[Rfam]
RNA sequence: ACUCCCGGGGCGCGUUCUCCUCCCAUUAGCCCCCGGCGAGUGUUCCCCUCUGGAGGUUUCGCCUUAAUGGCACUUCCAUAACUGGGCCGGAUCUUCCCGAUCCGGCUCUUUUU
Numbered sequence: 001a002c003u004c005c006c007g008g009g010g011c012g013c014g015u016u017c018u019c020c021u022c023c024c025a026u027u028a029g030c031c032c033c034c035g036g037c038g039a040g041u042g043u044u045c046c047c048c049u050c051u052g053g054a055g056g057u058u059u060c061g062c063c064u065u066a067a068u069g070g071c072a073c074u075u076c077c078a079u080a081a082c083u084g085g086g087c088c089g090g091a092u093c094u095u096c097c098c099g100a101u102c103c104g105g106c107u108c109u110u111u112u113u
Stems, first nucleotide, its partner, number of pairs: 001041004006035003010032001012030002051078007084108010
A member of the RNA family "Alphaproteobacterial ar15" from Chelativorans petroleitrophicus, 113 nucleotides long. It scores 45 bits against the family's covariance model. Lineage of the source: Bacteria > Pseudomonadota > Alphaproteobacteria > Phyllobacteriaceae > Chelativorans. Clan: suhB sRNA clan. Rfam 15.1 lists 316 matches to the family in 177 species. Rfam links the family to the GO term protein binding. On this family, see del Val et al., RNA Biol 2012: "A survey of sRNA families in alpha-proteobacteria". The base pairs follow the family's consensus structure. Rfam classes the family as a small RNA.